[Rfam]
Shown here is a 72-nucleotide RNA sequence from Patiria miniata, a member of the family "mir-29 microRNA precursor family". On this family, see Ambros, Cell 2001: "microRNAs: tiny regulators with great potential". This family represents the microRNA (miRNA) precursors mir-29.
RNA sequence: CGAAAACUGUUUUUUCUUGGUGCUUAGAGUCCUUCUUUUUUGUCGUCUAGCACCAUGAAAAAGCAGUCUUUG
Number, nucleotide and partner (000 for none) at each position: 001c072002g071003a070004a069005a067006a000007c066008u065009g064010u063011u062012u061013u060014u059015u058016c000017u000018u055019g054020g053021u052022g051023c000024u000025u049026a048027g047028a046029g000030u000031c000032c000033u000034u000035c000036u000037u000038u000039u000040u000041u000042g000043u000044c000045g000046u028047c027048u026049a025050g000051c022052a021053c020054c019055a018056u000057g000058a015059a014060a013061a012062a011063g010064c009065a008066g007067u005068c000069u004070u003071u002072g001
The sequence is in the family's curated seed alignment. The base pairs follow the family's consensus structure, which was predicted with PFOLD.